A member of the RNA family "TPP riboswitch aptamer (THI element)" from Marinobacterium marinum, 96 nucleotides long. A search with the family's covariance model found it, with a score of 72 bits.
[Rfam]
RNA sequence: GAUUCUUGGUCGGGGUGCCCGCUUGGACGGGCUGAGAUGAAACCCGCUGAACCUGAUCCGGUUGGUACCGGCGUAGGAAAUCGAGAUGGCCGUUAC
Numbered sequence: 001g002a003u004u005c006u007u008g009g010u011c012g013g014g015g016u017g018c019c020c021g022c023u024u025g026g027a028c029g030g031g032c033u034g035a036g037a038u039g040a041a042a043c044c045c046g047c048u049g050a051a052c053c054u055g056a057u058c059c060g061g062u063u064g065g066u067a068c069c070g071g072c073g074u075a076g077g078a079a080a081u082c083g084a085g086a087u088g089g090c091c092g093u094u095a096c
Stems, first nucleotide, its partner, number of pairs: 006084005011046004016040001017032005052077004058071004
Background: Taxonomically the source falls in Marinobacterium (Bacteria, Pseudomonadati, Gammaproteobacteria, Oceanospirillaceae). The base pairs follow the family's consensus structure, which is taken from published work.